Notes: A member of the RNA family "mir-9229 microRNA precursor family" from Myotis lucifugus, 76 nucleotides long. NCBI's taxonomy places the organism under Eukaryota, Euteleostomi, Dipnotetrapodomorpha, Tetrapoda, Myotis.

RNA sequence: GAGACACCCUUAUGCGGUAGGACUUGCUUCAGUGGGGUUUUGGUGCUAACUGAGUCUGCUUCUUGAGUUUGUCCCU
Numbered sequence: 001g002a003g004a005c006a007c008c009c010u011u012a013u014g015c016g017g018u019a020g021g022a023c024u025u026g027c028u029u030c031a032g033u034g035g036g037g038u039u040u041u042g043g044u045g046c047u048a049a050c051u052g053a054g055u056c057u058g059c060u061u062c063u064u065g066a067g068u069u070u071g072u073c074c075c076u
Stems, first nucleotide, its partner, number of pairs: 001075001003073004009067004014062001016060004021056003029053005035047002037044002